A member of the RNA family "SAM (S-adenosyl methionine) riboswitch aptamer" from Kineosporia babensis, 112 nucleotides long. SAM-IV is a mRNA element that regulates gene expression via direct sensing of S-adenosylmethionine (SAM or AdoMet). On this family, see Weinberg et al., RNA 2008: "The aptamer core of SAM-IV riboswitches mimics the ligand-binding site of SAM-I riboswitches". The match comes from Rfam's covariance-model search (103 bits). Pairs were carried over by alignment from the consensus structure, which is taken from published work. The source organism's lineage runs through Bacteria, Bacillati, Actinomycetota, Actinomycetes and Kineosporia.

[Rfam]
RNA sequence: GGUCAUGAGUACCAGCACACAGCCCCGGCUUGCUGGUCGGCAACCCUCGUUCCGCGGUGGGGUGCCCCGGGUGAUGACCAGGCCGUCGCACAUGCGACAGCAAGCGCGGUCG
Number, nucleotide and partner (000 for none) at each position: 001g079002g078003u077004c076005a000006u000007g000008a000009g038010u000011a037012c036013c035014a034015g033016c032017a000018c000019a000020c000021a030022g029023c000024c000025c000026c000027g000028g000029c022030u021031u000032g016033c015034u014035g013036g012037u011038c009039g066040g065041c064042a000043a000044c062045c061046c060047u000048c057049g000050u000051u000052c000053c000054g000055c000056g000057g048058u000059g000060g046061g045062g044063u000064g041065c040066c039067c000068c000069g000070g000071g000072u000073g000074a000075u000076g004077a003078c002079c001080a000081g000082g101083c100084c000085g098086u097087c096088g095089c094090a000091c000092a000093u000094g089095c088096g087097a086098c085099a000100g083101c082102a000103a000104g000105c000106g000107c000108g000109g000110u000111c000112g000